The family of this 78-nucleotide RNA sequence from Alligator mississippiensis is "Mammalian CPEB3 ribozyme". Taxonomically the source falls in Alligator (Eukaryota, Opisthokonta, Bilateria, Tetrapoda). Pairs were carried over by alignment from the consensus structure, which is taken from published work.
[Rfam]
RNA sequence: CCACAAGUUCAAGGUCACCACAGCAAAAGUGCUCACAGUGCAGCCCUGUCAGAUUUAAAUAGAUCUGCAAAUUUUGCA
Number, nucleotide and partner (000 for none) at each position: 001c000002c000003a000004c000005a000006a000007g000008u000009u000010c000011a000012a000013g046014g045015u000016c000017a000018c043019c000020a000021c000022a000023g077024c076025a075026a074027a073028a072029g041030u040031g039032c000033u000034c000035a000036c000037a000038g000039u031040g030041c029042a000043g018044c000045c014046c013047u000048g000049u000050c067051a066052g065053a064054u063055u062056u061057a000058a000059a000060u000061a056062g055063a054064u053065c052066u051067g050068c000069a000070a000071a000072u028073u027074u026075u025076g024077c023078a000
A search with the family's covariance model found it, with a score of 38 bits.